[Rfam]
RNA: MIR7486 microRNA precursor family
RNA sequence: CUCAAGGAAGCGUUUUGUCUACGUGGACAGAAAACGCUUCCCUGAGGGCGCACUUUCUGUCCAAAUGGACAAAGUGCUUCCUUGAGG
Numbered sequence: 001c002u003c004a005a006g007g008a009a010g011c012g013u014u015u016u017g018u019c020u021a022c023g024u025g026g027a028c029a030g031a032a033a034a035c036g037c038u039u040c041c042c043u044g045a046g047g048g049c050g051c052a053c054u055u056u057c058u059g060u061c062c063a064a065a066u067g068g069a070c071a072a073a074g075u076g077c078u079u080c081c082u083u084g085a086g087g
Base pairs, nucleotide, nucleotide: 001086002085003084004083005082006081007080008079009078010077011076012075013074014073015072016071017070018069019068020067021066024063025062026061027060028059029058030057031056032055033054036051037050040047041046